[Rfam]
Shown here is a 168-nucleotide RNA sequence from Erwinia sp. Leaf53, a member of the family "SraG RNA".
RNA sequence: CUUCGCUUGCAUCUCGCGACUAAUGACAACCCUCAUCCCCGGCAGGAUGAAGCCUCUCAUUAGCCGCGCGAAACUCUGCAACUGAAGAUCACACUCAGCAACAAUACAAUAGUUUGUGUUUAAUUGCUGCCGCUCGCGUGAAAAAAGGGGCCAUAAAGGCCCCUUUCC
Numbered sequence: 001c002u003u004c005g006c007u008u009g010c011a012u013c014u015c016g017c018g019a020c021u022a023a024u025g026a027c028a029a030c031c032c033u034c035a036u037c038c039c040c041g042g043c044a045g046g047a048u049g050a051a052g053c054c055u056c057u058c059a060u061u062a063g064c065c066g067c068g069c070g071a072a073a074c075u076c077u078g079c080a081a082c083u084g085a086a087g088a089u090c091a092c093a094c095u096c097a098g099c100a101a102c103a104a105u106a107c108a109a110u111a112g113u114u115u116g117u118g119u120u121u122a123a124u125u126g127c128u129g130c131c132g133c134u135c136g137c138g139u140g141a142a143a144a145a146a147g148g149g150g151c152c153a154u155a156a157a158g159g160c161c162c163c164u165u166u167c168c
Stems, first nucleotide, its partner, number of pairs: 001087005009079003015070004020063007093119002147163006

Pairs were carried over by alignment from the consensus structure, which was predicted with PFOLD. Its family is annotated with sRNA-mediated gene silencing and mRNA binding in the Gene Ontology. For this family Rfam cites "Novel small RNA-encoding genes in the intergenic regions of Escherichia coli" (Argaman et al., Curr Biol, 2001). Rfam classes the family as a small RNA. This RNA was discovered in E. coli during a large scale screen.